RAGATH-18 RNA: a 64-nucleotide RNA from Thermoflavimicrobium dichotomicum.
The match comes from Rfam's covariance-model search (66 bits).
The base pairs follow the family's consensus structure, which is taken from published work.
By type it is a small RNA.
Lineage of the source: Bacteria > Bacillota > Caryophanales > Thermoactinomycetaceae > Thermoflavimicrobium.

RNA sequence: CCUUAGGAGUGUCAGACCAAACGCAAGUAGCAAACCAGCAAACGCGGACACGAUGAAUAAGGAA
Numbered sequence: 001c002c003u004u005a006g007g008a009g010u011g012u013c014a015g016a017c018c019a020a021a022c023g024c025a026a027g028u029a030g031c032a033a034a035c036c037a038g039c040a041a042a043c044g045c046g047g048a049c050a051c052g053a054u055g056a057a058u059a060a061g062g063a064a
Base pairs, nucleotide, nucleotide: 001062002061003060004059005058009051010050011049012048013047022046023045024044030039031038